The family of this 44-nucleotide RNA sequence from Dictyostelium discoideum is "Class I RNA from Dictyostelium". About the family: Dictyostelium Class I RNA was first reported for Aspegren et al. 2004 in Dictyostelium discoideum. Sucgang et al. 2011 identify putative homologs of Class I RNA in D. discoideum and D. purpureum. Avesson et al. 2011 report that Class I RNA present a down regulation during the development of social amoeba Dictyostelium discoideum, they also found that deletion of one of the Class I RNAs, DdR-21, results in aberrant development. Kjellin et al. 2020 report an extended number of expressed Class I RNA genes in class Dictyostelia, in their analysis they remark that Class I RNA appear to be unique to dictyostelid social amoebas, and they hypothesise that Class I RNAs were involved in evolution of multicellularity in Dictyostelia. The organism belongs to Dictyostelium discoideum, within Eukaryota. The base pairs follow the family's consensus structure, which is taken from published work. On this family, see Avesson et al., RNA Biol 2011: "Abundant class of non-coding RNA regulates development in the social amoeba Dictyostelium discoideum". Rfam's curators put it in the seed alignment. Rfam classes the family as a non-coding RNA gene.

RNA sequence: GUUGGCCUUACAGCAAACCUUUGAAGAUUACCCCUUGUCAACUG
Numbered sequence: 001g002u003u004g005g006c007c008u009u010a011c012a013g014c015a016a017a018c019c020u021u022u023g024a025a026g027a028u029u030a031c032c033c034c035u036u037g038u039c040a041a042c043u044g
Stems, first nucleotide, its partner, number of pairs: 001042006